The family of this 197-nucleotide sequence from Kluyveromyces lactis is "Small nucleolar RNA snR32". Pairs were carried over by alignment from the consensus structure, which was predicted with WAR.
RNA sequence: AACAUCAAUAUUAUCGCUCCACGGUUAUCCCUGUGUAAGAUUUCGUUCUGCGCGGGGACCGGGUUAUGUGUUGUUCACUAUUUCCUGGUUUUAAUAAUUUGUGUUGAAGCGUAGAUUUAAUACCAAGUACGUUGCUGGGCGCCUGAUAUUGAGUCAAUUUGAUUAUGAUCUAUUGGGAAUCAGCUGUAUCUACAUUU
Numbered sequence: 001a002a003c004a005u006c007a008a009u010a011u012u013a014u015c016g017c018u019c020c021a022c023g024g025u026u027a028u029c030c031c032u033g034u035g036u037a038a039g040a041u042u043u044c045g046u047u048c049u050g051c052g053c054g055g056g057g058a059c060c061g062g063g064u065u066a067u068g069u070g071u072u073g074u075u076c077a078c079u080a081u082u083u084c085c086u087g088g089u090u091u092u093a094a095u096a097a098u099u100u101g102u103g104u105u106g107a108a109g110c111g112u113a114g115a116u117u118u119a120a121u122a123c124c125a126a127g128u129a130c131g132u133u134g135c136u137g138g139g140c141g142c143c144u145g146a147u148a149u150u151g152a153g154u155c156a157a158u159u160u161g162a163u164u165a166u167g168a169u170c171u172a173u174u175g176g177g178a179a180u181c182a183g184c185u186g187u188a189u190c191u192a193c194a195u196u197u
Stems, first nucleotide, its partner, number of pairs: 015111003020103004024095004033053004038047002054086005062079003127190001129187003142177002146173002148169003153166002156164002